[Rfam]
RNA: Small nucleolar RNA SNORA38
RNA sequence: CCCUCCAAUGAAGGCAUGUCUUCUGUUCUCUGCUUUGGAUAUGUAAGAAUUGGAGGGAAAGAAAUAUGAAUAAGGAGAAAUCUGGAGCUAGCUCCUUGCAGGCUCAAGAUCAACCACACCACAUAG
Numbered sequence: 001c002c003c004u005c006c007a008a009u010g011a012a013g014g015c016a017u018g019u020c021u022u023c024u025g026u027u028c029u030c031u032g033c034u035u036u037g038g039a040u041a042u043g044u045a046a047g048a049a050u051u052g053g054a055g056g057g058a059a060a061g062a063a064a065u066a067u068g069a070a071u072a073a074g075g076a077g078a079a080a081u082c083u084g085g086a087g088c089u090a091g092c093u094c095c096u097u098g099c100a101g102g103c104u105c106a107a108g109a110u111c112a113a114c115c116a117c118a119c120c121a122c123a124u125a126g
Stems, first nucleotide, its partner, number of pairs: 002056005015043007025029001068119001086104004091099002